Description
This 73-nucleotide RNA from Lactuca saligna belongs to the Rfam family "Plastid-clpP 5UTR RNA". By type it is a cis-regulatory element. Rfam describes the family as follows. Plastid clpP is a non-coding RNA (ncRNA) recognised in plastids. It was found in the prime untranslated region (5UTR) of a protease complex subunit (clpP) in plastids, suggesting a posible cis-regulatory function.
Nucleotides: 073
Base pairs, nucleotide, nucleotide: 003022004021006019007018008017009016010015047072048071049070055064056063
Number, partner (000 for none) and nucleotide at each position: 001000a002000a003022u004021u005000u006019u007018g008017u009016u010015u011000g012000u013000a014000a015010g016009a017008a018007c019006a020000a021004a022003g023000a024000g025000a026000a027000g028000u029000a030000a031000a032000u033000u034000u035000a036000u037000u038000c039000u040000a041000u042000a043000c044000g045000u046000a047072c048071u049070c050000g051000a052000u053000a054000a055064g056063u057000a058000c059000c060000g061000a062000c063056a064055c065000g066000u067000a068000a069000u070049g071048g072047g073000g